CRISPR RNA direct repeat element: a 37-nucleotide RNA sequence from Synechococcus sp. JA-2-3B'a(2-13).
A search with the family's covariance model found it, with a score of 46 bits.
RNA sequence: ACCAUCUUCCCCUUGCGGGGAAAAGGUAAGGAUCAAC
Numbered sequence: 001a002c003c004a005u006c007u008u009c010c011c012c013u014u015g016c017g018g019g020g021a022a023a024a025g026g027u028a029a030g031g032a033u034c035a036a037c
Stems, first nucleotide, its partner, number of pairs: 005026002008021005
Gene Ontology term of the family: defense response. The source organism's lineage runs through Bacteria, Bacillati, Cyanobacteriota, Synechococcales and Synechococcus.